[Rfam]
RNA sequence: AGCCUUUGUGUUGCCCGUUCACCUUUGAUCACUAGUGAAUGCGGUGUCAAAAAAGGCAUAAAUUAAUGCUUGGCAAGCUUUUCUUACCCCGGAGUUUGGUAUCUUGGGUAAAGGAACUGCUUAAGUAACAAAG
Dot-bracket structure: .((((((.((.(((((((((((............))))))).)))).))..))))))..........((((((((......((((..((..((........))...))...))))..)))).)))).......
Annotation: The family of this 133-nucleotide RNA sequence from Microtus ochrogaster is "Small nucleolar RNA SNORA13". Gene Ontology terms of the family: RNA processing and nucleolus. NCBI's taxonomy places the organism under Eukaryota, Deuterostomia, Euteleostomi, Rodentia, Microtus. The match comes from Rfam's covariance-model search (116 bits). From the family's description: ACA13 is a member of the H/ACA class of snoRNA that guide the sites of modification of uridines to pseudouridines.